Shown here is an 83-nucleotide RNA sequence from Bombyx mori, a member of the family "mir-2820 microRNA precursor family". The sequence is in the family's curated seed alignment. The family's consensus secondary structure was predicted with RNAalifold. Gene Ontology terms of the family: miRNA-mediated post-transcriptional gene silencing and RISC complex. The organism belongs to Bombyx, within Eukaryota.

RNA sequence: AAGCCUAUUCAUGAUCCUUUUGCAUCGUGCAUCGUACAUGGCCUUGGCGGCACGCACAGCAAGAUGGAACGUGAAUAAGGCGC
Numbered sequence: 001a002a003g004c005c006u007a008u009u010c011a012u013g014a015u016c017c018u019u020u021u022g023c024a025u026c027g028u029g030c031a032u033c034g035u036a037c038a039u040g041g042c043c044u045u046g047g048c049g050g051c052a053c054g055c056a057c058a059g060c061a062a063g064a065u066g067g068a069a070c071g072u073g074a075a076u077a078a079g080g081c082g083c
Base pairs, nucleotide, nucleotide: 003081004080005079006078007076008075009074010073011072012071013070015068016067017066018064019063020062021061022060023059027057028056029055030054